The record is a 113-nucleotide RNA sequence from Musa balbisiana, which matches "Plastid-psbA-1 3UTR RNA" in Rfam.

[Rfam]
RNA sequence: UCGAAGUUUCCUCUACAAAUGGAUAGUUUUUGUCUUAGUGUAUCGAAUCGUUGCCACAAAGUAGCAAUACCACCAUGUCCUUGCUUAAGCAAGACAUGGGGUAUUGCUCCUUU
Numbered sequence: 001u002c003g004a005a006g007u008u009u010c011c012u013c014u015a016c017a018a019a020u021g022g023a024u025a026g027u028u029u030u031u032g033u034c035u036u037a038g039u040g041u042a043u044c045g046a047a048u049c050g051u052u053g054c055c056a057c058a059a060a061g062u063a064g065c066a067a068u069a070c071c072a073c074c075a076u077g078u079c080c081u082u083g084c085u086u087a088a089g090c091a092a093g094a095c096a097u098g099g100g101g102u103a104u105u106g107c108u109c110c111u112u113u
Base pairs, nucleotide, nucleotide: 008023009022010021012019058113059112060111061110063108064107065106066105067104068103069102070101073099074098075097077095078094080093081092082091
The match comes from Rfam's covariance-model search (71 bits). From the family's description: Plastid psbA-1 is a non-coding RNA (ncRNA) present in plastids. It was identified in inverted repeat sequences in the 3 prime untranslate region (3UTR) of photosystem II quinone-binding protein (psbA). The family's consensus secondary structure was predicted with LocARNA. The source organism's lineage runs through Eukaryota, Magnoliopsida, Liliopsida, Zingiberales and Musa.